[Rfam]
Rfam assigns this 207-nucleotide RNA from Vibrio sediminis to the family "GcvB RNA".
The family's RNA type in Rfam is non-coding RNA gene.
Nucleotides: 207
Stems, first nucleotide, its partner, number of pairs: 009044004015040002021038007071086006088104003092100002148175001150173001152171001179199007
Number, partner (000 for none) and nucleotide at each position: 001000g002000c003000a004000a005000c006000g007000c008000u009044g010043g011042c012041c013000u014000g015040a016039a017000c018000g019000g020000c021038u022037u023036g024035a025034u026033u027032u028000u029000c030000c031000u032027g033026a034025a035024u036023c037022a038021a039016u040015u041012g042011g043010c044009u045000c046000a047000g048000a049000u050000g051000u052000u053000g054000c055000g056000a057000u058000g059000u060000u061000g062000u063000g064000u065000u066000u067000g068000c069000a070000a071086a072085a073084c074083u075082c076081a077000a078000u079000u080000u081076u082075g083074a084073g085072u086071u087000a088104g089103g090102u091000a092100g093099u094000u095000u096000u097000c098000u099093a100092c101000c102090a103089c104088c105000c106000a107000u108000g109000u110000u111000c112000u113000g114000c115000a116000u117000c118000a119000u120000c121000a122000c123000c124000u125000g126000a127000u128000g129000c130000a131000u132000g133000a134000c135000a136000u137000a138000u139000a140000c141000u142000u143000c144000c145000u146000g147000u148175a149000u150173u151000a152171u153000u154000u155000u156000g157000a158000c159000c160000u161000g162000u163000c164000u165000g166000u167000c168000a169000a170000a171152a172000c173150a174000u175148u176000c177000u178000u179199g180198c181197a182196c183195u184194g185193c186000c187000a188000a189000u190000u191000u192000g193185g194184c195183g196182g197181u198180g199179c200000u201000u202000u203000u204000u205000u206000u207000u
A reference for the family is Righetti et al. (2016), "Temperature-responsive in vitro RNA structurome of Yersinia pseudotuberculosis", Proc Natl Acad Sci U S A.
Its family is annotated with mRNA binding and regulation of gene expression in the Gene Ontology.
Rfam's curators write: The gcvB gene encodes a small untranslated RNA involved in expression of the dipeptide and oligopeptide transport systems in Escherichia coli. Included several unknown homologues in alignment (Bateman A pers obs).